[Rfam]
RNA sequence: UCCGCCCGGGUCCGUGGUUGCGUCGUCGGGACGCCGCGGGUCACUCCGGGCGCCCCACGACAAGCCGAAGCCAGUCGCAGGCGAAACGGUCCACGUAAGUCGACGCUCGCGUCGAUGAGCACGGUGCGGCUUAGUCGUCAGUCCUGCCCCGGACGGCCAUCAGACAUGGUCUUCCACCGGGAGAGGGUCGCGUGGCACCAAGCUGCCAAGCCCCAGCAGGCGGGUGUGGGGUCGAAGACCAGGUCGGCCGGGCGGA
Numbered sequence: 001u002c003c004g005c006c007c008g009g010g011u012c013c014g015u016g017g018u019u020g021c022g023u024c025g026u027c028g029g030g031a032c033g034c035c036g037c038g039g040g041u042c043a044c045u046c047c048g049g050g051c052g053c054c055c056c057a058c059g060a061c062a063a064g065c066c067g068a069a070g071c072c073a074g075u076c077g078c079a080g081g082c083g084a085a086a087c088g089g090u091c092c093a094c095g096u097a098a099g100u101c102g103a104c105g106c107u108c109g110c111g112u113c114g115a116u117g118a119g120c121a122c123g124g125u126g127c128g129g130c131u132u133a134g135u136c137g138u139c140a141g142u143c144c145u146g147c148c149c150c151g152g153a154c155g156g157c158c159a160u161c162a163g164a165c166a167u168g169g170u171c172u173u174c175c176a177c178c179g180g181g182a183g184a185g186g187g188u189c190g191c192g193u194g195g196c197a198c199c200a201a202g203c204u205g206c207c208a209a210g211c212c213c214c215a216g217c218a219g220g221c222g223g224g225u226g227u228g229g230g231g232u233c234g235a236a237g238a239c240c241a242g243g244u245c246g247g248c249c250g251g252g253c254g255g256a
Stems, first nucleotide, its partner, number of pairs: 001256009012247003015241005068227001070225001071081001073131007090124002098116001100115005122234001143220005148181005185213004192206005
Background: raiA RNA: a 256-nucleotide RNA from Nocardioides humilatus. The family's RNA type in Rfam is riboswitch.